Rfam assigns this 87-nucleotide RNA sequence from Clostridium gasigenes to the family "pan motif". It is annotated as a cis-regulatory element. The match comes from Rfam's covariance-model search (49 bits). Taxonomically the source falls in Clostridium (Bacteria, Bacillati, Clostridia, Clostridiaceae).
RNA sequence: UGGGUGGUAUUAGAGAUUAACCACACCAUUUUUAUAUUUGAAUUAAUUUAAUUUGACAGCUCAUAUCUUCAGGAAUGGGACUAAAAA
Numbered sequence: 001u002g003g004g005u006g007g008u009a010u011u012a013g014a015g016a017u018u019a020a021c022c023a024c025a026c027c028a029u030u031u032u033u034a035u036a037u038u039u040g041a042a043u044u045a046a047u048u049u050a051a052u053u054u055g056a057c058a059g060c061u062c063a064u065a066u067c068u069u070c071a072g073g074a075a076u077g078g079g080a081c082u083a084a085a086a087a
Stems, first nucleotide, its partner, number of pairs: 001028003004024005010019001058082002060079005066074003
Dot-bracket structure: ((((((((.(........)))))).))).............................(((((((.(((...)))))))).)).....